[Rfam]
RNA: Small nucleolar RNA SNORA17
RNA sequence: ACUGCCCCUAGAGGUUUUGCAGGUGUGGCUGCUGUGUCACAUGUGCAUCAGUAGGAGGCAGAGAGAAGAGAGGCUAUGCCUGUGCUCAGUGUUCUGACCUGUGAACAACUGAAUCAUUAGUAGCCUAACAGU
Numbered sequence: 001a002c003u004g005c006c007c008c009u010a011g012a013g014g015u016u017u018u019g020c021a022g023g024u025g026u027g028g029c030u031g032c033u034g035u036g037u038c039a040c041a042u043g044u045g046c047a048u049c050a051g052u053a054g055g056a057g058g059c060a061g062a063g064a065g066a067a068g069a070g071a072g073g074c075u076a077u078g079c080c081u082g083u084g085c086u087c088a089g090u091g092u093u094c095u096g097a098c099c100u101g102u103g104a105a106c107a108a109c110u111g112a113a114u115c116a117u118u119a120g121u122a123g124c125c126u127a128a129c130a131g132u
Stems, first nucleotide, its partner, number of pairs: 002061005007055004013049003019046003024041006068129001071126007084114001086112004090107005